[Rfam]
RNA sequence: AAUUGUUAUGAUGACUGGCAAAAUGUUCAACUGCUCUGAAAAGAGUGAAUGACAUCAGCCAUUCUGAACAUUU
Number, nucleotide and partner (000 for none) at each position: 001a000002a072003u000004u070005g069006u068007u000008a000009u000010g000011a000012u000013g000014a000015c000016u000017g000018g000019c000020a000021a000022a000023a000024u000025g000026u000027u000028c000029a000030a000031c000032u000033g000034c000035u000036c000037u000038g000039a000040a000041a000042a000043g000044a000045g000046u000047g000048a000049a000050u000051g000052a000053c000054a000055u000056c000057a000058g000059c000060c000061a000062u000063u000064c000065u000066g000067a000068a006069c005070a004071u000072u002073u000

The family of this 73-nucleotide RNA sequence from Sphenodon punctatus is "Small nucleolar RNA Z40". For this family Rfam cites "The high diversity of snoRNAs in plants: identification and comparative study of 120 snoRNA genes from Oryza sativa" (Chen et al., Nucleic Acids Res, 2003). Lineage of the source: Eukaryota > Vertebrata > Sarcopterygii > Amniota > Sphenodon. Rfam links the family to the GO terms nucleolus and RNA processing.